MIR8024 microRNA precursor family: an 87-nucleotide RNA from Solanum tuberosum. Rfam links the family to the GO terms miRNA-mediated post-transcriptional gene silencing and RISC complex. The base pairs follow the family's consensus structure, which was predicted with RNAalifold.
RNA sequence: UUAGAGGAUUUAAAUACUUCAACUUGUAAACUUAAAGAAUUUAAAAACUUCAACUUGCAUACUUGGCUAAAUUUAAAUACUUCAAGU
Numbered sequence: 001u002u003a004g005a006g007g008a009u010u011u012a013a014a015u016a017c018u019u020c021a022a023c024u025u026g027u028a029a030a031c032u033u034a035a036a037g038a039a040u041u042u043a044a045a046a047a048c049u050u051c052a053a054c055u056u057g058c059a060u061a062c063u064u065g066g067c068u069a070a071a072u073u074u075a076a077a078u079a080c081u082u083c084a085a086g087u
Stems, first nucleotide, its partner, number of pairs: 001085002004082003009077006019066003025059004032053002035050003